[Rfam]
RNA sequence: GGGAGUAGUUGGAGGGCUGGUGCCCCCCGUGGACUUCAAAUCCAUUGGGCGGCGAGUCCCGUCGUCGGUGGGUUCGAUUCCCACAUACUCCC
Numbered sequence: 001g002g003g004a005g006u007a008g009u010u011g012g013a014g015g016g017c018u019g020g021u022g023c024c025c026c027c028c029g030u031g032g033a034c035u036u037c038a039a040a041u042c043c044a045u046u047g048g049g050c051g052g053c054g055a056g057u058c059c060c061g062u063c064g065u066c067g068g069u070g071g072g073u074u075c076g077a078u079u080c081c082c083a084c085a086u087a088c089u090c091c092c
Stems, first nucleotide, its partner, number of pairs: 001092007012027001014025004029045005048066005069083004
Dot-bracket structure: (((((((....(.((((....)))).).(((((.......)))))..(((((.........)))))..((((.......))))..)))))))
Selenocysteine transfer RNA: a 92-nucleotide sequence from Natranaerobius trueperi. The family has 109 seed sequences and 4,211 matches in Rfam 15.1. Clan: tRNA clan. The family's consensus secondary structure is taken from published work. On this family, see Lowe and Eddy, Nucleic Acids Res 1997: "tRNAscan-SE: a program for improved detection of transfer RNA genes in genomic sequence". Taxonomically the source falls in Natranaerobius (Bacteria, Bacillati, Clostridia, Natranaerobiales).